[Rfam]
RNA sequence: CCCCAUCCGGAUGUCGGCGCACCUCCGCGCGCCGACGGCCCUGGCGCACCUUCCCCGGUGCCAGGUCCGUCGGUACGAGGCGGGACGCGGGCAUCCGGAUGGGGCACC
Numbered sequence: 001c002c003c004c005a006u007c008c009g010g011a012u013g014u015c016g017g018c019g020c021a022c023c024u025c026c027g028c029g030c031g032c033c034g035a036c037g038g039c040c041c042u043g044g045c046g047c048a049c050c051u052u053c054c055c056c057g058g059u060g061c062c063a064g065g066u067c068c069g070u071c072g073g074u075a076c077g078a079g080g081c082g083g084g085a086c087g088c089g090g091g092c093a094u095c096c097g098g099a100u101g102g103g104g105c106a107c108c
Base pairs, nucleotide, nucleotide: 010095011094012093013092014091015090018087019086022083023082025080026079028077029076031074032073033072034071035070036069037068038067040065041064042063043062044061045060046059047058
Rfam assigns this 108-nucleotide sequence from Pseudonocardia asaccharolytica to the family "mraW RNA".
Taxonomically the source falls in Pseudonocardia asaccharolytica (Bacteria, Bacillati, Actinomycetes, Pseudonocardiales).
The family's RNA type in Rfam is cis-regulatory element.
The family's consensus secondary structure is taken from published work.